[Rfam]
RNA sequence: UCACAAGUUCAAGGGCAUAGCAGAAGUGCUCACAGCACAGCCCUGUCAAAUUUCAAUGAAUCUGGGAAUUCUGCU
Numbered sequence: 001u002c003a004c005a006a007g008u009u010c011a012a013g014g015g016c017a018u019a020g021c022a023g024a025a026g027u028g029c030u031c032a033c034a035g036c037a038c039a040g041c042c043c044u045g046u047c048a049a050a051u052u053u054c055a056a057u058g059a060a061u062c063u064g065g066g067a068a069u070u071c072u073g074c075u
Base pairs, nucleotide, nucleotide: 013043014042015041019075020074021073022072023071024070025069026038027037028036047064048063050061051060052059053058
A member of the RNA family "Mammalian CPEB3 ribozyme" from Alligator mississippiensis, 75 nucleotides long. It scores 46 bits against the family's covariance model.